[Rfam]
Record summary: permuted transfer-messenger RNA: a 216-nucleotide RNA sequence from Rhodobiaceae bacterium UBA7378. The base pairs follow the family's consensus structure, which is taken from published work. Taxonomically the source falls in Rhodobiaceae (Bacteria, Pseudomonadati, Pseudomonadota, Hyphomicrobiales). It is annotated as a non-coding RNA gene.
RNA sequence: GGCGAUACACGGGCUUCGCAAUAAACCCAUCGGACCCGGGGGCAGUACCCGGCGCCUCCACCAUUUUUUUCCGGCAUAUAUGUCGGCUUUUGGGGGCGAACCAGGAUCGACGAGGGCGUAAAGGAUGUUUCCGUCGCUCGGCAUGGUACCCACCGUUAUCGGGCCAUUAUGAUAGUUGCAAAUGACAACUACGCGGAAGUAGCAGUCGCUGCAUAG
Numbered sequence: 001g002g003c004g005a006u007a008c009a010c011g012g013g014c015u016u017c018g019c020a021a022u023a024a025a026c027c028c029a030u031c032g033g034a035c036c037c038g039g040g041g042g043c044a045g046u047a048c049c050c051g052g053c054g055c056c057u058c059c060a061c062c063a064u065u066u067u068u069u070u071c072c073g074g075c076a077u078a079u080a081u082g083u084c085g086g087c088u089u090u091u092g093g094g095g096g097c098g099a100a101c102c103a104g105g106a107u108c109g110a111c112g113a114g115g116g117c118g119u120a121a122a123g124g125a126u127g128u129u130u131c132c133g134u135c136g137c138u139c140g141g142c143a144u145g146g147u148a149c150c151c152a153c154c155g156u157u158a159u160c161g162g163g164c165c166a167u168u169a170u171g172a173u174a175g176u177u178g179c180a181a182a183u184g185a186c187a188a189c190u191a192c193g194c195g196g197a198a199g200u201a202g203c204a205g206u207c208g209c210u211g212c213a214u215a216g
Base pairs, nucleotide, nucleotide: 001138002137003136004135005134014127016125017124026116027115028114030113031112032111036052037051038050039049040048053098054097055096056095057094058093059092139155140154141153